Mammalian CPEB3 ribozyme: a 77-nucleotide RNA from Parnassius apollo. Rfam links the family to the GO term RNA nuclease activity. NCBI's taxonomy places the organism under Eukaryota, Allotriocarida, Panorpida, Obtectomera, Parnassius. A search with the family's covariance model found it, with a score of 55 bits. Pairs were carried over by alignment from the consensus structure, which is taken from published work.

[Rfam]
RNA sequence: ACUGCCAUUGCGAGGGUCAUUGUAGAAGCGUACUCGUCGCGACCCCUGCCAGCCCUUUUCAGGGCUGCAAUUCUACA
Numbered sequence: 001a002c003u004g005c006c007a008u009u010g011c012g013a014g015g016g017u018c019a020u021u022g023u024a025g026a027a028g029c030g031u032a033c034u035c036g037u038c039g040c041g042a043c044c045c046c047u048g049c050c051a052g053c054c055c056u057u058u059u060c061a062g063g064g065c066u067g068c069a070a071u072u073c074u075a076c077a
Stems, first nucleotide, its partner, number of pairs: 014045005021077007028040003050067007
Dot-bracket structure: .............[[[[[..((((((((((.......)))]]]]]....(((((((....)))))))...)))))))